[Rfam]
RNA sequence: AGCACAAAUGAUGAUUAUAAGGGACUUAAUACUGAACUAUGAUGUCAAUUUUUAUGAGAAACUGAUGUGC
Numbered sequence: 001a002g003c004a005c006a007a008a009u010g011a012u013g014a015u016u017a018u019a020a021g022g023g024a025c026u027u028a029a030u031a032c033u034g035a036a037c038u039a040u041g042a043u044g045u046c047a048a049u050u051u052u053u054a055u056g057a058g059a060a061a062c063u064g065a066u067g068u069g070c
Stems, first nucleotide, its partner, number of pairs: 002070005
Notes
Rfam assigns this 70-nucleotide RNA sequence from Nipponia nippon to the family "Small nucleolar RNA SNORD82". Rfam links the family to the GO terms nucleolus and RNA processing. For this family Rfam cites "Purified box C/D snoRNPs are able to reproduce site-specific 2'-O-methylation of target RNA in vitro" (Galardi et al., Mol Cell Biol, 2002). The organism belongs to Nipponia, within Eukaryota. snoRNA U82 or Z25 is found in both humans and mice.